[Rfam]
RNA sequence: UAGAACAAUGUAGGCAAAAGAAGUUAGCAAAAUGGAUCCGUAACUUCGGGAAAUGGAUUGGCUUUGAGGGCUGGGGACGGGGGUCCCAGUCCCAAACCCAUCGGCAGUCGAUGGACUGCUCGAGCUGAUCUCGUGAUGAGAACGGGUCACCGCGUGUCAACUAGGGGACGGUCUUGGAACGGUUCCUUCGGGGUUCUUUCCCGAGCAUCGAACAACCAACUCAGAACUGGUACAACCAAGGGGAAUUCGACUGUUUAAUUAAAACAAAGAAUUUCGAUGAUCCAAACAGAUGUUUACGCAAUGUGAUUUCUUCCCAGUGCUCUGAAUGUCAAAGUGAAGAAAUUCAACCAACCGCGGGUAAACGGCGGGAGUAACUAUGACUCCUUUAAAGUAGCCAAAUUCCUUGUCAUCUAAUUAGUGACGCGCAUGAAUGGAUUAACGAGAUCCCCAAUGUCCCUGUCUACUAUCCAGCGAAACCACAACCAAGGGCGUUGGCUUGGAAAA
Numbered sequence: 001u002a003g004a005a006c007a008a009u010g011u012a013g014g015c016a017a018a019a020g021a022a023g024u025u026a027g028c029a030a031a032a033u034g035g036a037u038c039c040g041u042a043a044c045u046u047c048g049g050g051a052a053a054u055g056g057a058u059u060g061g062c063u064u065u066g067a068g069g070g071c072u073g074g075g076g077a078c079g080g081g082g083g084u085c086c087c088a089g090u091c092c093c094a095a096a097c098c099c100a101u102c103g104g105c106a107g108u109c110g111a112u113g114g115a116c117u118g119c120u121c122g123a124g125c126u127g128a129u130c131u132c133g134u135g136a137u138g139a140g141a142a143c144g145g146g147u148c149a150c151c152g153c154g155u156g157u158c159a160a161c162u163a164g165g166g167g168a169c170g171g172u173c174u175u176g177g178a179a180c181g182g183u184u185c186c187u188u189c190g191g192g193g194u195u196c197u198u199u200c201c202c203g204a205g206c207a208u209c210g211a212a213c214a215a216c217c218a219a220c221u222c223a224g225a226a227c228u229g230g231u232a233c234a235a236c237c238a239a240g241g242g243g244a245a246u247u248c249g250a251c252u253g254u255u256u257a258a259u260u261a262a263a264a265c266a267a268a269g270a271a272u273u274u275c276g277a278u279g280a281u282c283c284a285a286a287c288a289g290a291u292g293u294u295u296a297c298g299c300a301a302u303g304u305g306a307u308u309u310c311u312u313c314c315c316a317g318u319g320c321u322c323u324g325a326a327u328g329u330c331a332a333a334g335u336g337a338a339g340a341a342a343u344u345c346a347a348c349c350a351a352c353c354g355c356g357g358g359u360a361a362a363c364g365g366c367g368g369g370a371g372u373a374a375c376u377a378u379g380a381c382u383c384c385u386u387u388a389a390a391g392u393a394g395c396c397a398a399a400u401u402c403c404u405u406g407u408c409a410u411c412u413a414a415u416u417a418g419u420g421a422c423g424c425g426c427a428u429g430a431a432u433g434g435a436u437u438a439a440c441g442a443g444a445u446c447c448c449c450a451a452u453g454u455c456c457c458u459g460u461c462u463a464c465u466a467u468c469c470a471g472c473g474a475a476a477c478c479a480c481a482a483c484c485a486a487g488g489g490c491g492u493u494g495g496c497u498u499g500g501a502a503a504a
Stems, first nucleotide, its partner, number of pairs: 001470001003468002010464007020454001035059005044049001060228002063225006069217002072214002075206001078203006084178003088174002091171001097165002100162001101160001103158004109152002112149003116145003120141002124137001126135002229233001241449003245445003248441002252266003269304001271302003275298002280291003308435003313365002317363002319359004324355001327354002335346004367385006386390001406422005483500005

Eukaryotic large subunit ribosomal RNA: a 504-nucleotide part of an RNA from Solanum lycopersicum. Lineage of the source: Eukaryota > Tracheophyta > Solanaceae > Solanoideae > Solanum subgen. Lycopersicon. Its Rfam clan is "LSU clan".